The record is a 185-nucleotide sequence from Halalkalibacter akibai, which matches "Lysine riboswitch aptamer" in Rfam. A search with the family's covariance model found it, with a score of 122 bits. Lineage of the source: Bacteria > Bacillota > Bacillaceae > Halalkalibacter > Halalkalibacter akibai. About the family: Riboswitches are metabolite binding domains within certain messenger RNAs that serve as precision sensors for their corresponding targets. Allosteric rearrangement of mRNA structure is mediated by ligand binding, and this results in modulation of gene expression. This family includes riboswitches that sense lysine in a number of genes involved in lysine metabolism, including lysC.
RNA sequence: AAAUGAGGUAGAGGCGCGACGGCCAUUAGUAAAUUUCCUGAGGAUGACAACGAAGAGGGAAAAAGAAAGGGAAAGUCGCCGAAGUGAAACCAGAGGUCAGACUGUUUUCGCUGGGUCUGUAUUUAAUAAGUACAGGACUGUCAUAGCUUGGGUUAGCGUUCAAGUUAUGGAGAACUACCAUUCAA
Numbered sequence: 001a002a003a004u005g006a007g008g009u010a011g012a013g014g015c016g017c018g019a020c021g022g023c024c025a026u027u028a029g030u031a032a033a034u035u036u037c038c039u040g041a042g043g044a045u046g047a048c049a050a051c052g053a054a055g056a057g058g059g060a061a062a063a064a065g066a067a068a069g070g071g072a073a074a075g076u077c078g079c080c081g082a083a084g085u086g087a088a089a090c091c092a093g094a095g096g097u098c099a100g101a102c103u104g105u106u107u108u109c110g111c112u113g114g115g116u117c118u119g120u121a122u123u124u125a126a127u128a129a130g131u132a133c134a135g136g137a138c139u140g141u142c143a144u145a146g147c148u149u150g151g152g153u154u155a156g157c158g159u160u161c162a163a164g165u166u167a168u169g170g171a172g173a174a175c176u177a178c179c180a181u182u183c184a185a
Stems, first nucleotide, its partner, number of pairs: 007179005016079005024071001034062006083112007091104003113139002116136008141170011